[Rfam]
RNA: Plastid-clpP 5UTR RNA
RNA sequence: AAUUUGCUUUGUAGGAACAAAGAGAAGCAAAUCCAUUGUAUAUCCGAUAAGUACUAAUACGCAAUGGGG
Number, nucleotide and partner (000 for none) at each position: 001a000002a000003u022004u021005u000006g000007c000008u017009u016010u015011g000012u000013a000014g000015g010016a009017a008018c000019a000020a000021a004022g003023a000024g000025a000026a000027g000028c000029a000030a000031a000032u000033c000034c000035a000036u000037u000038g000039u000040a000041u000042a000043u068044c067045c066046g000047a000048u000049a000050a000051g060052u059053a058054c000055u000056a000057a000058u053059a052060c051061g000062c000063a000064a000065u000066g045067g044068g043069g000